[Rfam]
RNA: Small nucleolar RNA snoR97
RNA sequence: UCCUGAUCUUUAGUACUGAUGGCUGAAAAACUCUCAAAUGCUGUGUUGCCAUCAGCUUGAGCUCAUGAUUUUAUGGGCUGCGAGUUAAAUUACAACACUACAUUU
Numbered sequence: 001u002c003c004u005g006a007u008c009u010u011u012a013g014u015a016c017u018g019a020u021g022g023c024u025g026a027a028a029a030a031c032u033c034u035c036a037a038a039u040g041c042u043g044u045g046u047u048g049c050c051a052u053c054a055g056c057u058u059g060a061g062c063u064c065a066u067g068a069u070u071u072u073a074u075g076g077g078c079u080g081c082g083a084g085u086u087a088a089a090u091u092a093c094a095a096c097a098c099u100a101c102a103u104u105u
Base pairs, nucleotide, nucleotide: 043098044097045096046095047094048093054086055085056084057083058082059081061078062077063076064075